The record is a 140-nucleotide sequence from Gibbsiella quercinecans, which matches "Bacterial antisense RNA HPnc0260" in Rfam.
RNA sequence: GGUUGUAUAGGGGGAAUUAGCUAAACUGCAUGGCGAAGGGCAGAGCAUUUUAUUGUUAUUUUGAUAAUCGAGAGUAUGAAGAGAAAACUACGGAAGAGAAAUGGUGCGUCCGAGUGGACUCGAACCACCGACCCCCACCA
Numbered sequence: 001g002g003u004u005g006u007a008u009a010g011g012g013g014g015a016a017u018u019a020g021c022u023a024a025a026c027u028g029c030a031u032g033g034c035g036a037a038g039g040g041c042a043g044a045g046c047a048u049u050u051u052a053u054u055g056u057u058a059u060u061u062u063g064a065u066a067a068u069c070g071a072g073a074g075u076a077u078g079a080a081g082a083g084a085a086a087a088c089u090a091c092g093g094a095a096g097a098g099a100a101a102u103g104g105u106g107c108g109u110c111c112g113a114g115u116g117g118a119c120u121c122g123a124a125c126c127a128c129c130g131a132c133c134c135c136c137a138c139c140a
Stems, first nucleotide, its partner, number of pairs: 020046003026038002029035001059073003102137003106133001111130002114128004